[Rfam]
The record is a 204-nucleotide RNA sequence from Conger conger, which matches "Small nucleolar RNA SNORA74" in Rfam. The match comes from Rfam's covariance-model search (93 bits). Clan: SNORA74 clan. The family has 24 seed sequences and 1,348 matches in Rfam 15.1. Rfam describes the family as follows. U19 belongs to the H/ACA class of snoRNAs. snoRNAs bind a number of proteins (including dyskerin, Gar1p and Nop10p in the case of the H/ACA class) to form snoRNP complexes. This class are thought to guide the sites of modification of uridines to pseudouridines by forming direct base pairing interactions with substrate RNAs. Targets may include ribosomal and spliceosomal RNAs but the exact functions of many snoRNAs, including U19, are not confirmed. Co-precipitation of U19 snoRNA with RNase MRP RNA suggests that U19 may be involved in pre-rRNA processing.
RNA sequence: CCCAGCGGUAAGUCAGCUGCGCGGGCCUGCUCAGUGCCUGGGUCAGUGUUACUCUGCUGGGAGAGGAAGGCGCUUCACUGUGGCUGGGCUCUGGGAGACACUGUUUUAGUGGCUGCUGAUGCUAGGCUGUGAUGGUGCCUUACCCCUCUGAGAGUGGACUGUGCCCACACAUUGGGUGCAGUCCUAGUCUGAGGGACGAACACU
Numbered sequence: 001c002c003c004a005g006c007g008g009u010a011a012g013u014c015a016g017c018u019g020c021g022c023g024g025g026c027c028u029g030c031u032c033a034g035u036g037c038c039u040g041g042g043u044c045a046g047u048g049u050u051a052c053u054c055u056g057c058u059g060g061g062a063g064a065g066g067a068a069g070g071c072g073c074u075u076c077a078c079u080g081u082g083g084c085u086g087g088g089c090u091c092u093g094g095g096a097g098a099c100a101c102u103g104u105u106u107u108a109g110u111g112g113c114u115g116c117u118g119a120u121g122c123u124a125g126g127c128u129g130u131g132a133u134g135g136u137g138c139c140u141u142a143c144c145c146c147u148c149u150g151a152g153a154g155u156g157g158a159c160u161g162u163g164c165c166c167a168c169a170c171a172u173u174g175g176g177u178g179c180a181g182u183c184c185u186a187g188u189c190u191g192a193g194g195g196a197c198g199a200a201c202a203c204u
Base pairs, nucleotide, nucleotide: 001061002060003059004058005057006056007055008054012052013051016047017046018045019044022040023039024038025037026036070138071137072136073135074134075132076131077130082128083127084126085125090119091118093116095114099111100110101109102108140199141198144195145194146193147192156184157183158182160180161179162178163177164176165175166174